[Rfam]
RNA sequence: GGAGUGUCAUUGUAAUAGUAAUUGAACUUAGUACGAGAGGAACCGUUCAUUCACGUAAUUGGUAUUUACACCUGUUCGAGAGGACAAUGGUGUGAAGCUACCACGUGCUGGAUUAUGGCUGAACGCCUCUAAGCCAGAAUCCGUGCUAGAAACAAUGAUUUUGUCCCGUGCAUCUCAAAGUUGCGUUGAAAUAGAGCUUUAUGCUCGUGAACCAUCAUCUGUGGGUCAAGCUGGCUAAGUGGAAAGACUUGGUCAGUUUCCUACAUAAAUCAUUGAAAAUAUGUGCGGGGGUAAAUCCUUUGCAGACGACUUGAAUAGGAACGGGGUACUGUAAGUGGUAGAGUAGCCUUGUUGCUACGAUCCACUGAGGUUCAGCCCUUGUUCUAAAGAUUUGU
Numbered sequence: 001g002g003a004g005u006g007u008c009a010u011u012g013u014a015a016u017a018g019u020a021a022u023u024g025a026a027c028u029u030a031g032u033a034c035g036a037g038a039g040g041a042a043c044c045g046u047u048c049a050u051u052c053a054c055g056u057a058a059u060u061g062g063u064a065u066u067u068a069c070a071c072c073u074g075u076u077c078g079a080g081a082g083g084a085c086a087a088u089g090g091u092g093u094g095a096a097g098c099u100a101c102c103a104c105g106u107g108c109u110g111g112a113u114u115a116u117g118g119c120u121g122a123a124c125g126c127c128u129c130u131a132a133g134c135c136a137g138a139a140u141c142c143g144u145g146c147u148a149g150a151a152a153c154a155a156u157g158a159u160u161u162u163g164u165c166c167c168g169u170g171c172a173u174c175u176c177a178a179a180g181u182u183g184c185g186u187u188g189a190a191a192u193a194g195a196g197c198u199u200u201a202u203g204c205u206c207g208u209g210a211a212c213c214a215u216c217a218u219c220u221g222u223g224g225g226u227c228a229a230g231c232u233g234g235c236u237a238a239g240u241g242g243a244a245a246g247a248c249u250u251g252g253u254c255a256g257u258u259u260c261c262u263a264c265a266u267a268a269a270u271c272a273u274u275g276a277a278a279a280u281a282u283g284u285g286c287g288g289g290g291g292u293a294a295a296u297c298c299u300u301u302g303c304a305g306a307c308g309a310c311u312u313g314a315a316u317a318g319g320a321a322c323g324g325g326g327u328a329c330u331g332u333a334a335g336u337g338g339u340a341g342a343g344u345a346g347c348c349u350u351g352u353u354g355c356u357a358c359g360a361u362c363c364a365c366u367g368a369g370g371u372u373c374a375g376c377c378c379u380u381g382u383u384c385u386a387a388a389g390a391u392u393u394g395u
Stems, first nucleotide, its partner, number of pairs: 006159008016148004021051001023049005052107005060100003067094005073086005109143003116136005165289007293393005299313001302310001318385006324378003328371002335365004340361001343358005
Dot-bracket structure: .....((((((((..((((.(.(((((.................))))).)(((((...(((....(((((.(((((....)))))...)))))...)))..))))).(((....(((((...........)))))....))).))))...)))))))).....(((((((...............................................................................................................)))))))...(((((.(..(.......)..)....(((((((((.((.....((((.(..(((((......)))))..)))))....))....))).))))))...)))))..